[Rfam]
This 111-nucleotide RNA from Geovibrio thiophilus belongs to the Rfam family "SAM riboswitch aptamer (S box leader)".
Lineage of the source: Bacteria > Deferribacteres > Deferribacterales > Geovibrionaceae > Geovibrio.
RNA sequence: UGCUUAUCCAGAGCGGCUGAGGGACGGGCCCGAUGAAGCCGCAGCAACCCUGCGCACGAAGGCGCAAAGGUGCUAACUCCCGCCCUUCAUAUUUUCAGGGGCAGAUAGGCG
Number, nucleotide and partner (000 for none) at each position: 001u111002g110003c109004u108005u107006a106007u105008c104009c000010a000011g000012a000013g042014c041015g040016g039017c038018u000019g000020a000021g031022g030023g029024a000025c082026g081027g080028g079029c023030c022031c021032g000033a000034u000035g000036a000037a000038g017039c016040c015041g014042c013043a074044g073045c072046a071047a000048c070049c069050c000051u066052g065053c064054g063055c000056a000057c000058g000059a000060a000061g000062g000063c054064g053065c052066a051067a000068a000069g049070g048071u046072g045073c044074u043075a000076a000077c000078u103079c028080c027081c026082g025083c100084c099085c098086u097087u000088c000089a000090u000091a000092u000093u000094u000095u000096c000097a086098g085099g084100g083101g000102c000103a078104g008105a007106u006107a005108g004109g003110c002111g001